[Rfam]
RNA sequence: GUUCCCGAGGAGCGUUGCGACGGCCACCGCCAGGUGCGCUGCCAGGCUCGGGGCCCGGCCCGGAGCAGCCUGCUUCGCCCCGCCGGAUGCAACGGCGCUCACUCCCC
Numbered sequence: 001g002u003u004c005c006c007g008a009g010g011a012g013c014g015u016u017g018c019g020a021c022g023g024c025c026a027c028c029g030c031c032a033g034g035u036g037c038g039c040u041g042c043c044a045g046g047c048u049c050g051g052g053g054c055c056c057g058g059c060c061c062g063g064a065g066c067a068g069c070c071u072g073c074u075u076c077g078c079c080c081c082g083c084c085g086g087a088u089g090c091a092a093c094g095g096c097g098c099u100c101a102c103u104c105c106c107c
Base pairs, nucleotide, nucleotide: 003053004052005051006050007049008048021041022040023039024038

Background
This 107-nucleotide sequence from beta proteobacterium AAP65 belongs to the Rfam family "SAH (S-adenosyl-L-homocysteine) riboswitch aptamer". Gene Ontology terms of the family: regulation of gene expression and S-adenosylhomocysteine metabolic process. Pairs were carried over by alignment from the consensus structure, which is taken from published work. It scores 41 bits against the family's covariance model.